[Rfam]
RNA sequence: GCCAAGGCCUUGUGAGGCUUGGCAGCGGGCGCCGGGGGUGUCCGGCGCUCUCAUAUCCAUGUUGCUCAUUGGAGGAUAUGGCUAUGGGCU
Numbered sequence: 001g002c003c004a005a006g007g008c009c010u011u012g013u014g015a016g017g018c019u020u021g022g023c024a025g026c027g028g029g030c031g032c033c034g035g036g037g038g039u040g041u042c043c044g045g046c047g048c049u050c051u052c053a054u055a056u057c058c059a060u061g062u063u064g065c066u067c068a069u070u071g072g073a074g075g076a077u078a079u080g081g082c083u084a085u086g087g088g089c090u
Base pairs, nucleotide, nucleotide: 001023002022003021004020005019006018008017009016028049029048030047031046032045033044034043035042050088051087052086053085054084055083057081058080059079060078061077062076063075065074066073067072